RNA sequence: UGUCUCCUCCAAUCUUCAUGAAUUGGAUUCAGCCCGCAAACCGCAAGGUCUGCGGGUUUUUUUUU
Numbered sequence: 001u002g003u004c005u006c007c008u009c010c011a012a013u014c015u016u017c018a019u020g021a022a023u024u025g026g027a028u029u030c031a032g033c034c035c036g037c038a039a040a041c042c043g044c045a046a047g048g049u050c051u052g053c054g055g056g057u058u059u060u061u062u063u064u065u
Stems, first nucleotide, its partner, number of pairs: 008027005031058008
RNA: Betaproteobacteria toxic small RNA